The family of this 133-nucleotide sequence from Gouania willdenowi is "Small nucleolar RNA SNORA17". The match comes from Rfam's covariance-model search (52 bits). For this family Rfam cites "Mapping to nucleotide resolution of pseudouridine residues in large subunit ribosomal RNAs from representative eukaryotes, prokaryotes, archaebacteria, mitochondria and chloroplasts" (Ofengand and Bakin, J Mol Biol, 1997). The base pairs follow the family's consensus structure, which was predicted with RNAalifold. Clan: SNORA17 clan. Gene Ontology terms of the family: nucleolus and RNA processing.
[Rfam]
RNA sequence: CCUGCCCCUCGAGGCGUUGCAGUCCAACUCUGUGUUGUCGCUGUGUCAUGAGGGGCAGAGAGAGACUGAUGGUGGUCUGCACUGAGACUCUAGACCACAUGGAGGACUCAGAGUGAUUAUCACCAUCUACACU
Dot-bracket structure: .((((((((((.(((...((((..((((.....))))...))))))).)))))))))).........(((((((.....((.((((.((((.........))))..))))...)).....)))))))......

Rfam's curators write: snoRNA ACA 17 belongs to the H/ACA family of snoRNAs and is predicted to guide pseudouridylation of the 28S rRNA at positions U4659 and U4598. It shares the same host gene together with ACA43. NB This family has a high threshold value to exclude a large number of closely related sequences that do not appear to have conserved H and ACA boxes, and may be pseudogenes.